Overview:
Shown here is a 451-nucleotide part of an RNA from Melghirimyces profundicolus, a member of the family "Bacterial large subunit ribosomal RNA". The match comes from Rfam's covariance-model search (2935 bits).
RNA sequence: CUCCCCGAAAUAGCUUUAGGGCUAGCCUCGACAGGAAGAGUCGCGGAGGUAGAGCACUGAUUGGGCUAGGGGCCCAUCCCGGGUUACCGAACUCAGUCAAACUCCGAAUGCCGUGGACUUGAUGGUCGGGAGUCAGACUGCGAGUGCUAAGAUCCGCAGUCGAGAGGGAAACAGCCCGGACCGCCAGCUAAGGUCCCCAAGUGCGUGUUCAGUGGAAAAGGAUGUGGAGUUGCCGAGACAACCAGGAUGUUGGCUUAGAAGCAGCCAUCAUUCAAAGAGUGCGUAAUAGCUCACUGGUCAAGUGACUCUGCGCCGAAAAUGUAACGGGGCUCAAACACGCCACCGAAGCUGCGGUCCGGCACUCCAAGCUUGGAGUGCCGGAGGUAGGGGAGCGUCCCCAGGGCGUUGAAGUCGCACCGGGAGGUGCGGUGGAGCGCUGGGGAGUGAGAAU
Numbered sequence: 001c002u003c004c005c006c007g008a009a010a011u012a013g014c015u016u017u018a019g020g021g022c023u024a025g026c027c028u029c030g031a032c033a034g035g036a037a038g039a040g041u042c043g044c045g046g047a048g049g050u051a052g053a054g055c056a057c058u059g060a061u062u063g064g065g066c067u068a069g070g071g072g073c074c075c076a077u078c079c080c081g082g083g084u085u086a087c088c089g090a091a092c093u094c095a096g097u098c099a100a101a102c103u104c105c106g107a108a109u110g111c112c113g114u115g116g117a118c119u120u121g122a123u124g125g126u127c128g129g130g131a132g133u134c135a136g137a138c139u140g141c142g143a144g145u146g147c148u149a150a151g152a153u154c155c156g157c158a159g160u161c162g163a164g165a166g167g168g169a170a171a172c173a174g175c176c177c178g179g180a181c182c183g184c185c186a187g188c189u190a191a192g193g194u195c196c197c198c199a200a201g202u203g204c205g206u207g208u209u210c211a212g213u214g215g216a217a218a219a220g221g222a223u224g225u226g227g228a229g230u231u232g233c234c235g236a237g238a239c240a241a242c243c244a245g246g247a248u249g250u251u252g253g254c255u256u257a258g259a260a261g262c263a264g265c266c267a268u269c270a271u272u273c274a275a276a277g278a279g280u281g282c283g284u285a286a287u288a289g290c291u292c293a294c295u296g297g298u299c300a301a302g303u304g305a306c307u308c309u310g311c312g313c314c315g316a317a318a319a320u321g322u323a324a325c326g327g328g329g330c331u332c333a334a335a336c337a338c339g340c341c342a343c344c345g346a347a348g349c350u351g352c353g354g355u356c357c358g359g360c361a362c363u364c365c366a367a368g369c370u371u372g373g374a375g376u377g378c379c380g381g382a383g384g385u386a387g388g389g390g391a392g393c394g395u396c397c398c399c400a401g402g403g404c405g406u407u408g409a410a411g412u413c414g415c416a417c418c419g420g421g422a423g424g425u426g427c428g429g430u431g432g433a434g435c436g437c438u439g440g441g442g443a444g445u446g447a448g449a450a451u
Stems, first nucleotide, its partner, number of pairs: 001392006011024005026132001027130006037123001038120005043114004052105001053103002058099003062095004069088002071085005136161007144153002166177003181354004186350003192344003201341001203340006220314002224311010241298005247271003252266003272276001277292001281290002355382011393446001395443007403435002411430008
NCBI's taxonomy places the organism under Bacteria, Bacillati, Bacilli, Caryophanales, Melghirimyces.